[Rfam]
RNA sequence: AAAUGUGAGGGUGAUCUGGCUGCGACCUCUGUCACCCCAUUGAUCACCAGGGUUGACUGGCUGAUCUGGAUGGCUAGACAGGCGUCCCCUUUCCUGCCCGAUGGAUCCGUGUACAUCCUUCCUGGAGCUGUAAGCUCAGUGGAAGAGGAUGGCCUUCCCCAAUAGGGGAGGGCCCUUUUUCGGUCGAGGGUAUAUGAAAAGCUGUUCUCCCCUGCUAGACCCUCCAAACAAGCUCUCAAGGUCCAUUCCUAGAAGAAAGUAGGCUAGUCAAGCUUCCAAGACUCGAGACACAUCCAAAUGAGGUGCUGCAGGUAGCGGUCUGCCUUUCUUA
Numbered sequence: 001a002a003a004u005g006u007g008a009g010g011g012u013g014a015u016c017u018g019g020c021u022g023c024g025a026c027c028u029c030u031g032u033c034a035c036c037c038c039a040u041u042g043a044u045c046a047c048c049a050g051g052g053u054u055g056a057c058u059g060g061c062u063g064a065u066c067u068g069g070a071u072g073g074c075u076a077g078a079c080a081g082g083c084g085u086c087c088c089c090u091u092u093c094c095u096g097c098c099c100g101a102u103g104g105a106u107c108c109g110u111g112u113a114c115a116u117c118c119u120u121c122c123u124g125g126a127g128c129u130g131u132a133a134g135c136u137c138a139g140u141g142g143a144a145g146a147g148g149a150u151g152g153c154c155u156u157c158c159c160c161a162a163u164a165g166g167g168g169a170g171g172g173c174c175c176u177u178u179u180u181c182g183g184u185c186g187a188g189g190g191u192a193u194a195u196g197a198a199a200a201g202c203u204g205u206u207c208u209c210c211c212c213u214g215c216u217a218g219a220c221c222c223u224c225c226a227a228a229c230a231a232g233c234u235c236u237c238a239a240g241g242u243c244c245a246u247u248c249c250u251a252g253a254a255g256a257a258a259g260u261a262g263g264c265u266a267g268u269c270a271a272g273c274u275u276c277c278a279a280g281a282c283u284c285g286a287g288a289c290a291c292a293u294c295c296a297a298a299u300g301a302g303g304u305g306c307u308g309c310a311g312g313u314a315g316c317g318g319u320c321u322g323c324c325u326u327u328c329u330u331a
Stems, first nucleotide, its partner, number of pairs: 003106001005102002009098002013093002018089002024086003028082006035073002037069003042066004047060002116171002118168004122139004127135002140162001142160001147158003201273003207267002211263005222255002225252001228250001231247002297330002300326005305319005
Dot-bracket structure: ..(.((..((..((...((....(((.((((((.(((((..((((.((..........))..)))))))..))...)))))).))).))..))...))..))...).........((((((((((.((.....))))))(.(....(((......))).).)..)))).)).............................(((...((..(((((......((.(..(..((.............))..).).))...)))))..))...))).......................((.((((((((((.....)))))..)))))..)).
The record is a 331-nucleotide RNA sequence from Eschrichtius robustus, which matches "7SK RNA" in Rfam. A search with the family's covariance model found it, with a score of 260 bits. For this family Rfam cites "Transcription: surprising role for an elusive small nuclear RNA" (Blencowe, Curr Biol, 2002). Clan: 7SK clan. Rfam describes the family as follows. 7SK was discovered as an abundant small nuclear RNA in the mid-70s but a possible function has only recently been suggested. Two independent studies have found that 7SK RNA binds the CDK9/cyclin T complex (known as elongation factor P-TEFb). P-TEFb activates transcription by phosphorylating the C-terminal domain of RNA polymerase II. This process is negatively regulated by the 7SK RNP. The secondary structure of 7SK RNA shown here was proposed by Wasserman and Steitz on the basis of chemical modification and enzymatic cleavage experiments. This family contains a number of annotated pseudogenes and 7SK derived repeats. The family has 45 seed sequences and 49,373 matches in Rfam 15.1. NCBI's taxonomy places the organism under Eukaryota, Vertebrata, Sarcopterygii, Laurasiatheria, Eschrichtius.